[Rfam]
Rfam assigns this 46-nucleotide sequence from Rhodopirellula baltica to the family "Acido-Lenti-1 RNA".
A search with the family's covariance model found it, with a score of 50 bits.
By type it is a small RNA.
The base pairs follow the family's consensus structure, which is taken from published work.

Nucleotides: 046
Stems, first nucleotide, its partner, number of pairs: 001020008033045005
Number, partner (000 for none) and nucleotide at each position: 001020c002019c003018u004017u005016g006015g007014g008013u009000u010000g011000a012000a013008a014007c015006c016005c017004a018003a019002g020001g021000c022000u023000a024000u025000u026000g027000g028000c029000u030000g031000u032000c033045g034044u035043c036042g037041c038000u039000c040000c041037g042036c043035g044034a045033c046000u